[Rfam]
RNA sequence: UUACCACUCUGGCCUUUUGGCUUAGAUCAAGUGUAGUAUCUGUUCUUAAUAGUUUAACCACUAUUAUGGAGGCACCGCCUCCAUUCUUGGUUAUCUAAUUUUUGCCGCCCCAGUUCUUUGGGCUCUGCUUGCACCCCUUGGACGCGAUGACCUUGCUGCUGCACUACUGGCUUGUGUCGUCGGGGGAUC
Numbered sequence: 001u002u003a004c005c006a007c008u009c010u011g012g013c014c015u016u017u018u019g020g021c022u023u024a025g026a027u028c029a030a031g032u033g034u035a036g037u038a039u040c041u042g043u044u045c046u047u048a049a050u051a052g053u054u055u056a057a058c059c060a061c062u063a064u065u066a067u068g069g070a071g072g073c074a075c076c077g078c079c080u081c082c083a084u085u086c087u088u089g090g091u092u093a094u095c096u097a098a099u100u101u102u103u104g105c106c107g108c109c110c111c112a113g114u115u116c117u118u119u120g121g122g123c124u125c126u127g128c129u130u131g132c133a134c135c136c137c138u139u140g141g142a143c144g145c146g147a148u149g150a151c152c153u154u155g156c157u158g159c160u161g162c163a164c165u166a167c168u169g170g171c172u173u174g175u176g177u178c179g180u181c182g183g184g185g186g187a188u189c
Stems, first nucleotide, its partner, number of pairs: 008026003011022004047066006067083007114142003120136002126133002145182006152174001155171003
RNA: U2 spliceosomal RNA